[Rfam]
RNA sequence: CGGCGCUUGAGGCUUCUGCCUCAUGUUGUCGGCAGCAGUACUGAAGUUUGUGAGGCAGAAAGCAGAAAAGCCCCGAAAGUUAAUUUUCAUUAACCCCCGAGGCCCCUGCAUGCACAAGAACAUCAGGAUAGCCUCUUACCCGCCGCAAGGCAAGGAGAAGAAGGCCAUG
Numbered sequence: 001c002g003g004c005g006c007u008u009g010a011g012g013c014u015u016c017u018g019c020c021u022c023a024u025g026u027u028g029u030c031g032g033c034a035g036c037a038g039u040a041c042u043g044a045a046g047u048u049u050g051u052g053a054g055g056c057a058g059a060a061a062g063c064a065g066a067a068a069a070g071c072c073c074c075g076a077a078a079g080u081u082a083a084u085u086u087u088c089a090u091u092a093a094c095c096c097c098c099g100a101g102g103c104c105c106c107u108g109c110a111u112g113c114a115c116a117a118g119a120a121c122a123u124c125a126g127g128a129u130a131g132c133c134u135c136u137u138a139c140c141c142g143c144c145g146c147a148a149g150g151c152a153a154g155g156a157g158a159a160g161a162a163g164g165c166c167a168u169g
Stems, first nucleotide, its partner, number of pairs: 002073002005071004012063003015059008025049001075098001079094006099135005106127002110123003139164002143160001